RNA sequence: UCGCCGCUCGACCCGACACAACAUUCUGCAGCAAUGUUGUGCGACCUGCAGUGUCGGUCCCGCCGCUU
Numbered sequence: 001u002c003g004c005c006g007c008u009c010g011a012c013c014c015g016a017c018a019c020a021a022c023a024u025u026c027u028g029c030a031g032c033a034a035u036g037u038u039g040u041g042c043g044a045c046c047u048g049c050a051g052u053g054u055c056g057g058u059c060c061c062g063c064c065g066c067u068u
Stems, first nucleotide, its partner, number of pairs: 003066002006063002010059004020038006043055003
Dot-bracket structure: ..((.((..((((......((((((.......))))))....(((.......)))))))..)).))..
Rfam assigns this 68-nucleotide RNA from Ramularia collo-cygni to the family "bZIP non canonical Hac1/Xbp1 intron". Rfam classes the family as a small RNA. The source organism's lineage runs through Eukaryota, Fungi, saccharomyceta, leotiomyceta and Ramularia. About the family: bZIP intron RNA is a non-canonical intron that was first reported in HAC1 gene in yeast and XBP1 gene in Metazoa. It scores 41 bits against the family's covariance model. The literature on the family includes a 2018 paper in mSphere by Iracane et al., "Identification of an Exceptionally Long Intron in the HAC1 Gene of Candida parapsilosis".